This 158-nucleotide sequence from Glycine max belongs to the Rfam family "MIR4371 microRNA precursor family". It scores 134 bits against the family's covariance model. Pairs were carried over by alignment from the consensus structure, which was predicted with RNAalifold. The family is grouped with related families in Rfam's "MIR4387 microRNA precursor clan". The source organism's lineage runs through Eukaryota, Viridiplantae, eudicotyledons, Phaseoleae and Glycine subgen. Soja.

RNA sequence: CCUUUAAGUGAUGACGUGACAGACAGAGUAUCAUGUCAUCAUGCAUUGUCAUCAAUACCUCAUUGUCAUGUCAUCACUCUCAAUGAUGUGCCACUGACGUGUUAGUGAUUAAGUGUGAUGAUGUGACACUCCAUCUGUUACGUUAUCACUUAACGAAA
Numbered sequence: 001c002c003u004u005u006a007a008g009u010g011a012u013g014a015c016g017u018g019a020c021a022g023a024c025a026g027a028g029u030a031u032c033a034u035g036u037c038a039u040c041a042u043g044c045a046u047u048g049u050c051a052u053c054a055a056u057a058c059c060u061c062a063u064u065g066u067c068a069u070g071u072c073a074u075c076a077c078u079c080u081c082a083a084u085g086a087u088g089u090g091c092c093a094c095u096g097a098c099g100u101g102u103u104a105g106u107g108a109u110u111a112a113g114u115g116u117g118a119u120g121a122u123g124u125g126a127c128a129c130u131c132c133a134u135c136u137g138u139u140a141c142g143u144u145a146u147c148a149c150u151u152a153a154c155g156a157a158a
Base pairs, nucleotide, nucleotide: 002155004153005152006151007150008149009148010147011146012145013144014143015142016141017140018139019138020137021136022135023134026131027130028129029128031126032125033124034123035122036121037120038119039118040117041116042115043114044113046111048109049108050107051106052105054103055102056101057100058099070087071086072085073084074083